[Rfam]
RNA: MIR8024 microRNA precursor family
Organism: Solanum lycopersicum
RNA sequence: UUGAAGAAUUUGAAGAUUUCAUGUUGCAUGCUUAAACAAUUUGAAGACUUCAUCUUGUAGACUUGAAGAAUUUGAAGAUUUCAACU
Numbered sequence: 001u002u003g004a005a006g007a008a009u010u011u012g013a014a015g016a017u018u019u020c021a022u023g024u025u026g027c028a029u030g031c032u033u034a035a036a037c038a039a040u041u042u043g044a045a046g047a048c049u050u051c052a053u054c055u056u057g058u059a060g061a062c063u064u065g066a067a068g069a070a071u072u073u074g075a076a077g078a079u080u081u082c083a084a085c086u
Stems, first nucleotide, its partner, number of pairs: 001084006009076006017068005025059004033052001035050002